[Rfam]
Record summary: This 43-nucleotide sequence from Escherichia coli belongs to the Rfam family "ES036 (CssrF) sRNA". It is annotated as a small RNA. Taxonomically the source falls in Escherichia coli (Bacteria, Pseudomonadati, Gammaproteobacteria, Enterobacteriaceae). Rfam describes the family as follows. Differentially expressed under several chemical stress conditions. Also identified in Shigella as CssrF. Rfam 15.1 lists 273 matches to the family in 31 species.
RNA sequence: AAAGUCCUGCAGAUUCAAUAUAUUGCAGGUACUGCGUAGGCCU
Numbered sequence: 001a002a003a004g005u006c007c008u009g010c011a012g013a014u015u016c017a018a019u020a021u022a023u024u025g026c027a028g029g030u031a032c033u034g035c036g037u038a039g040g041c042c043u
Base pairs, nucleotide, nucleotide: 006029008027009026010025011024012023